[Rfam]
RNA sequence: AGUGAGUAAGUAGUUCGCUGAGUCAACUAAAGGGUGCUUAUGCACCAGCAUGCAUGCCAUGUGGGAUCCUUUAGUCAGGGGAAAACUCACUUUUUU
Numbered sequence: 001a002g003u004g005a006g007u008a009a010g011u012a013g014u015u016c017g018c019u020g021a022g023u024c025a026a027c028u029a030a031a032g033g034g035u036g037c038u039u040a041u042g043c044a045c046c047a048g049c050a051u052g053c054a055u056g057c058c059a060u061g062u063g064g065g066a067u068c069c070u071u072u073a074g075u076c077a078g079g080g081g082a083a084a085a086c087u088c089a090c091u092u093u094u095u096u
Stems, first nucleotide, its partner, number of pairs: 001091007016079001018078004027074006033046005049061004
RNA: DUF3800-VII RNA